Background
The record is a 52-nucleotide RNA from Propithecus coquereli, which matches "mir-1302 microRNA precursor family" in Rfam. Rfam links the family to the GO terms RISC complex and miRNA-mediated post-transcriptional gene silencing. The family has 24 seed sequences and 16,160 matches in Rfam 15.1. The organism belongs to Propithecus, within Eukaryota.
[Rfam]
RNA sequence: UUUUUAGUAUAAGUAGAUCCCAUACAAGAUUUGGGACCUACUUAUAUUAAAA
Numbered sequence: 001u002u003u004u005u006a007g008u009a010u011a012a013g014u015a016g017a018u019c020c021c022a023u024a025c026a027a028g029a030u031u032u033g034g035g036a037c038c039u040a041c042u043u044a045u046a047u048u049a050a051a052a
Stems, first nucleotide, its partner, number of pairs: 006048007014040003018036004022031001
Dot-bracket structure: .....(((((((.(((.(((((........).)))).))).)))))))....
On this family, see Morin et al., Genome Res 2008: "Application of massively parallel sequencing to microRNA profiling and discovery in human embryonic stem cells".
The base pairs follow the family's consensus structure, which was predicted with WAR.